RNA sequence: GCCUCCAAGCCUCUUAACAAUGCUCAAAUCCGGGGGCU
Numbered sequence: 001g002c003c004u005c006c007a008a009g010c011c012u013c014u015u016a017a018c019a020a021u022g023c024u025c026a027a028a029u030c031c032g033g034g035g036g037c038u
Base pairs, nucleotide, nucleotide: 001037002036003035004034005033006032008024009023010022